[Rfam]
RNA sequence: CUUUUAUGAUGCAACUCGCACACGUCUUACGCCCUGUGUCAAUGCCAGAACCUGAAAAGGUGAACCCACUGGUGUGUCCUGGGCAAUAAGGGGAUGAUCCGUUGGGGUUUCCAACAGUCUGAGAAGC
Numbered sequence: 001c002u003u004u005u006a007u008g009a010u011g012c013a014a015c016u017c018g019c020a021c022a023c024g025u026c027u028u029a030c031g032c033c034c035u036g037u038g039u040c041a042a043u044g045c046c047a048g049a050a051c052c053u054g055a056a057a058a059g060g061u062g063a064a065c066c067c068a069c070u071g072g073u074g075u076g077u078c079c080u081g082g083g084c085a086a087u088a089a090g091g092g093g094a095u096g097a098u099c100c101g102u103u104g105g106g107g108u109u110u111c112c113a114a115c116a117g118u119c120u121g122a123g124a125a126g127c
Stems, first nucleotide, its partner, number of pairs: 001126004
The family of this 127-nucleotide RNA from Danio rerio is "Small nucleolar RNA SNORD22". A reference for the family is Tycowski et al. (1996), "A mammalian gene with introns instead of exons generating stable RNA products", Nature. The family's RNA type in Rfam is C/D-box small nucleolar RNA.